A member of the RNA family "Guanidine-I riboswitch aptamer" from Paenibacillus sp. Root444D2, 103 nucleotides long. Its family is annotated with regulation of gene expression in the Gene Ontology. Lineage of the source: Bacteria > Bacillota > Bacilli > Paenibacillaceae > Paenibacillus. About the family: This family represents a conserved RNA structure found upstream of the ykkC and yxkD genes in Bacillus subtilis and related genes in other bacteria. The function of this family is unclear although it has been suggested that it may function to switch on efflux pumps and detoxification systems in response to harmful environmental molecules. It scores 83 bits against the family's covariance model.
RNA sequence: CAUAUUGUUUUCUAGGGUUCCGUGGCGUUCAUCGCCAGACUGGUCCGAGGGGAAACACGCAGCGAAUACGCUGUGGUCACGGAGGGGAAAAAGCCCGGGAGUC
Numbered sequence: 001c002a003u004a005u006u007g008u009u010u011u012c013u014a015g016g017g018u019u020c021c022g023u024g025g026c027g028u029u030c031a032u033c034g035c036c037a038g039a040c041u042g043g044u045c046c047g048a049g050g051g052g053a054a055a056c057a058c059g060c061a062g063c064g065a066a067u068a069c070g071c072u073g074u075g076g077u078c079a080c081g082g083a084g085g086g087g088a089a090a091a092a093g094c095c096c097g098g099g100a101g102u103c
Base pairs, nucleotide, nucleotide: 007056008055009054010053011052012051015046016045020043021042022040023037024036025035026034027033058075059074060073061072062071063070064069078098080101084096085095086094